[Rfam]
RNA sequence: GGUGUGCGAUAGACUUACCUCCACGUGGUGCACCCCGGGCAACGUAUACUCAUACGGCUUAGAGGUCUAU
Numbered sequence: 001g002g003u004g005u006g007c008g009a010u011a012g013a014c015u016u017a018c019c020u021c022c023a024c025g026u027g028g029u030g031c032a033c034c035c036c037g038g039g040c041a042a043c044g045u046a047u048a049c050u051c052a053u054a055c056g057g058c059u060u061a062g063a064g065g066u067c068u069a070u
Base pairs, nucleotide, nucleotide: 001036002035004033005032006031007030017029018028019027043056044055045054046053047052
Dot-bracket structure: ((.((((.........(((.......))))))).))......(((((....)))))..............